[Rfam]
RNA: Small nucleolar RNA SNORA44
RNA sequence: UGGAAUAGUUUGAUGGUCAGCUGAAUAGUAGGAGUAAGAAAAGAUGGUAUGACAUAGGAUCUCCAACUGCAUACAAGGAGACUGUGUGCAACUUGGAGAGAUUUUGACAGCUCACGUCAUCCCAAUACCUGUGGUUGACACUUACCUUUCCUAUAAGG
Numbered sequence: 001u002g003g004a005a006u007a008g009u010u011u012g013a014u015g016g017u018c019a020g021c022u023g024a025a026u027a028g029u030a031g032g033a034g035u036a037a038g039a040a041a042a043g044a045u046g047g048u049a050u051g052a053c054a055u056a057g058g059a060u061c062u063c064c065a066a067c068u069g070c071a072u073a074c075a076a077g078g079a080g081a082c083u084g085u086g087u088g089c090a091a092c093u094u095g096g097a098g099a100g101a102u103u104u105u106g107a108c109a110g111c112u113c114a115c116g117u118c119a120u121c122c123c124a125a126u127a128c129c130u131g132u133g134g135u136u137g138a139c140a141c142u143u144a145c146c147u148u149u150c151c152u153a154u155a156a157g158g
Stems, first nucleotide, its partner, number of pairs: 011057001016053004095151006111137001113131002116128001